RNA sequence: GGGCGCAUAGCUCAGCUGGUUAGAGCACCACGUUUACACCGUGGGGGUCAGAGGUUCGAAUCCUCUUGCGCCCA
Numbered sequence: 001g002g003g004c005g006c007a008u009a010g011c012u013c014a015g016c017u018g019g020u021u022a023g024a025g026c027a028c029c030a031c032g033u034u035u036a037c038a039c040c041g042u043g044g045g046g047g048u049c050a051g052a053g054g055u056u057c058g059a060a061u062c063c064u065c066u067u068g069c070g071c072c073c074a
Stems, first nucleotide, its partner, number of pairs: 001073007010026004028044005050066005